[Rfam]
RNA sequence: UGCAGGAUUCCGCGUGGCGUCCAUCCUCUGAACUCCCCCAGGGCAGGAAUGCAGCAAGGGUCAGGAGGCUCUGGCGGGUGCGCGGGGUCCCCUUUUAUU
Numbered sequence: 001u002g003c004a005g006g007a008u009u010c011c012g013c014g015u016g017g018c019g020u021c022c023a024u025c026c027u028c029u030g031a032a033c034u035c036c037c038c039c040a041g042g043g044c045a046g047g048a049a050u051g052c053a054g055c056a057a058g059g060g061u062c063a064g065g066a067g068g069c070u071c072u073g074g075c076g077g078g079u080g081c082g083c084g085g086g087g088u089c090c091c092c093u094u095u096u097a098u099u
Stems, first nucleotide, its partner, number of pairs: 004093003009086006015078001018076004025068005035060003043052003
The family of this 99-nucleotide RNA sequence from Corynebacterium aurimucosum is "Bacterial small signal recognition particle RNA". For this family Rfam cites "Kinship in the SRP RNA family" (Rosenblad et al., RNA Biol, 2009). The family is grouped with related families in Rfam's "SRP clan". The family's RNA type in Rfam is non-coding RNA gene. Rfam describes the family as follows. The signal recognition particle (SRP) is a universally conserved ribonucleoprotein involved in the co-translational targeting of proteins to membranes. The match comes from Rfam's covariance-model search (65 bits).